[Rfam]
Rfam assigns this 115-nucleotide sequence from Corynebacterium epidermidicanis to the family "SAM (S-adenosyl methionine) riboswitch aptamer". The family is grouped with related families in Rfam's "SAM clan". SAM-IV is a mRNA element that regulates gene expression via direct sensing of S-adenosylmethionine (SAM or AdoMet). SAM-IV riboswitches share conserved nucleotide positions with the previously described SAM-I riboswitches sequence analysis and molecular recognition experiments suggest that SAM-I and SAM-IV riboswitches share similar ligand binding sites, but have different scaffolds.

Nucleotides: 115
Stems, first nucleotide, its partner, number of pairs: 001080004009040001012038005021032002041066003046062003050058002083104004090099003
Number, partner (000 for none) and nucleotide at each position: 001080g002079a003078u004077u005000a006000a007000g008000a009040a010000g011000a012038c013037u014036g015035g016034c017000c018000a019000c020000a021032a022031g023000c024000c025000u026000c027000c028000u029000g030000c031022c032021u033000g034016g035015c036014c037013a038012g039000c040009u041066g042065g043064c044000a045000a046062c047061c048060g049000c050058g051057c052000a053000g054000c055000g056000c057051g058050c059000a060048c061047g062046g063000u064043g065042c066041c067000c068000g069000c070000a071000g072000g073000g074000g075000a076000a077004a078003a079002u080001c081000g082000g083104c084103c085102c086101g087000c088000c089000a090099g091098c092097c093000a094000a095000c096000c097092g098091g099090c100000c101086c102085g103084g104083g105000a106000a107000g108000a109000g110000c111000g112000a113000a114000a115000a